[Rfam]
RNA sequence: GAAGCUCUAACGGGGUGCCGCAUCUGCGGCUGAGAGGCUUUGCCAACCCGCGGAACCUGAUCCGGUUGAUACCGGCGGAGGGAUUAGACGGCUUCUGAUC
Numbered sequence: 001g002a003a004g005c006u007c008u009a010a011c012g013g014g015g016u017g018c019c020g021c022a023u024c025u026g027c028g029g030c031u032g033a034g035a036g037g038c039u040u041u042g043c044c045a046a047c048c049c050g051c052g053g054a055a056c057c058u059g060a061u062c063c064g065g066u067u068g069a070u071a072c073c074g075g076c077g078g079a080g081g082g083a084u085u086a087g088a089c090g091g092c093u094u095c096u097g098a099u100c
Base pairs, nucleotide, nucleotide: 006088007087008086009085010084011050012049013048014047017030018029019028020027021026037043038042056081057080058079062075063074064073065072